[Rfam]
RNA: mir-2774 microRNA precursor family
Organism: Bombyx mori
RNA sequence: ACAACUUUCGGACUGUCGGUCUACCGAGCAAAAUCACCCGCUCGGUGAAAGAUCUUCCCUCCGUCGU
Number, nucleotide and partner (000 for none) at each position: 001a000002c000003a000004a064005c063006u000007u000008u000009c000010g058011g057012a056013c000014u000015g053016u052017c051018g000019g000020u049021c000022u047023a046024c045025c044026g043027a042028g041029c040030a000031a000032a000033a000034u000035c000036a000037c000038c000039c000040g029041c028042u027043c026044g025045g024046u023047g022048a000049a020050a000051g017052a016053u015054c000055u000056u012057c011058c010059c000060u000061c000062c000063g005064u004065c000066g000067u000